Shown here is a 74-nucleotide RNA from Tyzzerella sp. An114, a member of the family "tRNA". Rfam links the family to the GO term triplet codon-amino acid adaptor activity. The family's consensus secondary structure is taken from published work. By type it is a transfer RNA. Rfam describes the family as follows. Transfer RNA (tRNA) molecules are approximately 80 nucleotides in length.

RNA sequence: CGCGGAGUGGAGCAGCUCGGUAGCUCGUCGGGCUCAUAACCCGAAGGUCACAGGUUCAAAUCCUGUCUCCGCAA
Numbered sequence: 001c002g003c004g005g006a007g008u009g010g011a012g013c014a015g016c017u018c019g020g021u022a023g024c025u026c027g028u029c030g031g032g033c034u035c036a037u038a039a040c041c042c043g044a045a046g047g048u049c050a051c052a053g054g055u056u057c058a059a060a061u062c063c064u065g066u067c068u069c070c071g072c073a074a
Stems, first nucleotide, its partner, number of pairs: 002072006010026004028044005050066005